Purine riboswitch aptamer: a 102-nucleotide RNA from Acidaminobacter hydrogenoformans. The source organism's lineage runs through Bacteria, Bacillota, Clostridia, Acidaminobacter and Acidaminobacter hydrogenoformans.
[Rfam]
RNA sequence: CAUCAACUUAAUGCGGACACUCAUAUAUCGGCGGUAAUAGGGACUGCCAGUUUCUACGGGAAAACCGUAAAUUUUCCUGCUAUGAGUGAAAUCUGAAGGCGU
Dot-bracket structure: .................((((((((....((((((.......)))))).........(((((((.......)))))))..))))))))..............